Shown here is a 57-nucleotide RNA, a member of the family "Plastid-ndhJ 3UTR RNA". Rfam's curators write: Plastid ndhJ is a non-coding RNA (ncRNA) present in plastids. Rfam classes the family as a cis-regulatory element. Rfam 15.1 lists 869 matches to the family in 155 species. It is one of the family's seed sequences. The literature on the family includes a 2023 paper in Plant Commun by Richter et al., "Retrograde signaling in plants: A critical review focusing on the GUN pathway and beyond".

[Rfam]
RNA sequence: AACUUUGUUUUGUAUCGCGCACAUCACUUAGAUGGGUUCUAGAAAGUCAUGUAGGAG
Numbered sequence: 001a002a003c004u005u006u007g008u009u010u011u012g013u014a015u016c017g018c019g020c021a022c023a024u025c026a027c028u029u030a031g032a033u034g035g036g037u038u039c040u041a042g043a044a045a046g047u048c049a050u051g052u053a054g055g056a057g
Stems, first nucleotide, its partner, number of pairs: 019037002022034004